[Rfam]
Record summary
A member of the RNA family "FMN riboswitch aptamer (RFN element)" from Amantichitinum ursilacus, 192 nucleotides long. Its family is annotated with FMN binding in the Gene Ontology. The source organism's lineage runs through Bacteria, Pseudomonadota, Betaproteobacteria, Neisseriales and Amantichitinum.

RNA sequence: GUACGUCUUCAGGGCGGGGUGGAAUUCCCCACCGGCGGUAGGGUUGCGCUAUCUGGCAACCAAGCCCGCGAGCGCCUGGCGUUACGGAUAUUGAUAUCCCCACGCCAGGGUCAGCAGAUCCGGUGACACCGAUGCGCAAUGCAACGGUUAUUCCGGAGCCGACGGUUAGAGUCCGGAUGAAAGAAGAUCAGU
Numbered sequence: 001g002u003a004c005g006u007c008u009u010c011a012g013g014g015c016g017g018g019g020u021g022g023a024a025u026u027c028c029c030c031a032c033c034g035g036c037g038g039u040a041g042g043g044u045u046g047c048g049c050u051a052u053c054u055g056g057c058a059a060c061c062a063a064g065c066c067c068g069c070g071a072g073c074g075c076c077u078g079g080c081g082u083u084a085c086g087g088a089u090a091u092u093g094a095u096a097u098c099c100c101c102a103c104g105c106c107a108g109g110g111u112c113a114g115c116a117g118a119u120c121c122g123g124u125g126a127c128a129c130c131g132a133u134g135c136g137c138a139a140u141g142c143a144a145c146g147g148u149u150a151u152u153c154c155g156g157a158g159c160c161g162a163c164g165g166u167u168a169g170a171g172u173c174c175g176g177a178u179g180a181a182a183g184a185a186g187a188u189c190a191g192u
Stems, first nucleotide, its partner, number of pairs: 005188006017029003031172002033161002035069004064159002072115002119157005163175003